Shown here is a 438-nucleotide part of an RNA from Rhodnius prolixus, a member of the family "Eukaryotic large subunit ribosomal RNA".
[Rfam]
RNA sequence: CGACCUCAGAUUAGGUGGGAUUCCCCGCUGAAUUUAAGCAUAUUAGUAAGCGGUGGAAAAGAAACCAACAGGGAUUCCCUUAGUAGCUGCGAGUGAACAGGGAUUAGCCCAGCACUGAAUCCCAAAAGCAUUGCUUUUAGGGAAAUGUAGUGUUUGGGAGGGCUCAAUUAACCCCAAGAUAUGUGCAUUUCGCCCAAGUCCAUCUUGAACGAGGCCACGGUCCCGAGAGGGUGCCAGGCCCGUUGUUGGCAAAUGUCUAUUUCGGGUGGGCCUCUCCUUAGAGUCGGGUUGCUUGAGAGUGCAGCCCUAAGUAGGUGGUAAACUCCAUCUAAGGCUAAAUACAACCACGAGACCGAUAGCGAACAAGUACCGUGAGGGAAAGUUGAAAAGAACUUUGAAGAGAGAGUUCAAGAGUACGUGAAACCGCUCAGGGGUAAA
Numbered sequence: 001c002g003a004c005c006u007c008a009g010a011u012u013a014g015g016u017g018g019g020a021u022u023c024c025c026c027g028c029u030g031a032a033u034u035u036a037a038g039c040a041u042a043u044u045a046g047u048a049a050g051c052g053g054u055g056g057a058a059a060a061g062a063a064a065c066c067a068a069c070a071g072g073g074a075u076u077c078c079c080u081u082a083g084u085a086g087c088u089g090c091g092a093g094u095g096a097a098c099a100g101g102g103a104u105u106a107g108c109c110c111a112g113c114a115c116u117g118a119a120u121c122c123c124a125a126a127a128g129c130a131u132u133g134c135u136u137u138u139a140g141g142g143a144a145a146u147g148u149a150g151u152g153u154u155u156g157g158g159a160g161g162g163c164u165c166a167a168u169u170a171a172c173c174c175c176a177a178g179a180u181a182u183g184u185g186c187a188u189u190u191c192g193c194c195c196a197a198g199u200c201c202a203u204c205u206u207g208a209a210c211g212a213g214g215c216c217a218c219g220g221u222c223c224c225g226a227g228a229g230g231g232u233g234c235c236a237g238g239c240c241c242g243u244u245g246u247u248g249g250c251a252a253a254u255g256u257c258u259a260u261u262u263c264g265g266g267u268g269g270g271c272c273u274c275u276c277c278u279u280a281g282a283g284u285c286g287g288g289u290u291g292c293u294u295g296a297g298a299g300u301g302c303a304g305c306c307c308u309a310a311g312u313a314g315g316u317g318g319u320a321a322a323c324u325c326c327a328u329c330u331a332a333g334g335c336u337a338a339a340u341a342c343a344a345c346c347a348c349g350a351g352a353c354c355g356a357u358a359g360c361g362a363a364c365a366a367g368u369a370c371c372g373u374g375a376g377g378g379a380a381a382g383u384u385g386a387a388a389a390g391a392a393c394u395u396u397g398a399a400g401a402g403a404g405a406g407u408u409c410a411a412g413a414g415u416a417c418g419u420g421a422a423a424c425c426g427c428u429c430a431g432g433g434g435u436a437a438a
Base pairs, nucleotide, nucleotide: 024055025053026052027051028050029049035042036041065072066071076103077102078101079100080099086094087093106336107335108334109333113152114151115150116149117148119146120143121142122141123140125138126137127136128135156277157276158274159273160272161271163270164269165268166267181260182259183258185256186255188252192250193249194248198215200214201213203212204211223227230240231239286307287306288305289304290303291302292301313330314329315328316327317326370377371376393404394403395402396401
Dot-bracket structure: .......................((((((.....((....))......))))).).........((....))...(((((.....((.....))....)))))..((((...(((((.(((((.((((......)))).))))..).)))))...((((((.((((..............(((.((.(...(((...(.((.((......))))).......(...)..((.......)).......))).)..)).)))......)))))))).))........(((((((........))))))).....(((((........)))))..)))).................................((....))...............((((....))))..................................
Pairs were carried over by alignment from the consensus structure, which is taken from published work. Gene Ontology terms of the family: ribosome and structural constituent of ribosome.